[Rfam]
RNA sequence: UAGGACGGUCCAGCGCGUAGAACAUUAUUCCUACUAUUAUUACUGACAAAUCAUCUUGAAAAUUUGGGGCUAGGCCUCAUCUAAUCUCCAGUAGCACAUUUGAUCAGUACAAAUCGGAGGAGUUAUGCGUCUGGAUCGUCUUAC
Number, nucleotide and partner (000 for none) at each position: 001u000002a142003g141004g140005a139006c138007g137008g136009u135010c134011c133012a132013g000014c000015g130016c129017g128018u127019a126020g000021a124022a123023c122024a000025u045026u000027a000028u042029u000030c000031c000032u039033a000034c000035u000036a000037u000038u000039a032040u000041u000042a028043c000044u000045g025046a000047c000048a000049a000050a000051u000052c000053a000054u069055c068056u067057u066058g065059a064060a000061a000062a000063u000064u059065u058066g057067g056068g055069g054070c000071u000072a000073g078074g000075c000076c000077u000078c073079a000080u000081c000082u000083a000084a000085u120086c119087u118088c117089c116090a000091g114092u113093a000094g000095c000096a000097c000098a000099u000100u000101u000102g000103a000104u000105c000106a000107g000108u000109a000110c000111a000112a000113a092114u091115c000116g089117g088118a087119g086120g085121a000122g023123u022124u021125a000126u019127g018128c017129g016130u015131c000132u012133g011134g010135a009136u008137c007138g006139u005140c004141u003142u002143a000144c000

Rfam assigns this 144-nucleotide RNA from Lonsdalea quercina to the family "Yersinia sRNA 155(RyfD)". NCBI's taxonomy places the organism under Bacteria, Pseudomonadati, Gammaproteobacteria, Enterobacterales, Lonsdalea. From the family's description: The sRNA was identified by and is confirmed to have a stable secondary structure by using genome-wide structure probing at different temperatures. The function is unknown.